[Rfam]
RNA sequence: GACAGUGAUGUAAAAGCCCUAUUCCAUUUCUGAAUGCUCUCAAUGUGGAGUAACUCAAACUGAUGUC
Numbered sequence: 001g002a003c004a005g006u007g008a009u010g011u012a013a014a015a016g017c018c019c020u021a022u023u024c025c026a027u028u029u030c031u032g033a034a035u036g037c038u039c040u041c042a043a044u045g046u047g048g049a050g051u052a053a054c055u056c057a058a059a060c061u062g063a064u065g066u067c
Stems, first nucleotide, its partner, number of pairs: 001067004
RNA: Small nucleolar RNA SNORD98
Organism: Sphaeramia orbicularis